[Rfam]
RNA sequence: GAUAACCACUAGGGGUGCCUUUUAUAGGCUGAGACGUGCGAGUAUGCGCGGACCCUUGGAACCUGAUUCGGAUUAUACCGACGGAGGAAAGUGGGCAUCCGCGCCU
Numbered sequence: 001g002a003u004a005a006c007c008a009c010u011a012g013g014g015g016u017g018c019c020u021u022u023u024a025u026a027g028g029c030u031g032a033g034a035c036g037u038g039c040g041a042g043u044a045u046g047c048g049c050g051g052a053c054c055c056u057u058g059g060a061a062c063c064u065g066a067u068u069c070g071g072a073u074u075a076u077a078c079c080g081a082c083g084g085a086g087g088a089a090a091g092u093g094g095g096c097a098u099c100c101g102c103g104c105c106u
Stems, first nucleotide, its partner, number of pairs: 006094005011056004016050001017029004036049005062087003068081004

The family of this 106-nucleotide sequence from Sporosarcina sp. Marseille-Q4063 is "TPP riboswitch aptamer (THI element)". The family's consensus secondary structure is taken from published work. Rfam's curators write: Vitamin B(1) in its active form thiamin pyrophosphate (TPP) is an essential coenzyme that is synthesised by coupling of pyrimidine and thiazole moieties in bacteria.